[Rfam]
Nucleotides: 033
Base pairs, nucleotide, nucleotide: 003014004013005012006011017026018025019024
Number, partner (000 for none) and nucleotide at each position: 001000u002000c003014a004013c005012c006011c007000a008000u009000c010000g011006g012005g013004g014003u015000c016000a017026c018025g019024g020000a021000u022000a023000c024019c025018u026017g027000c028000u029000u030000u031000u032000a033000u
The record is a 33-nucleotide RNA sequence from Carlito syrichta, which matches "XIST RNA A repeat" in Rfam. The family's RNA type in Rfam is small RNA. The sequence is in the family's curated seed alignment. The base pairs follow the family's consensus structure, which was predicted with CMfinder. The organism belongs to Carlito, within Eukaryota.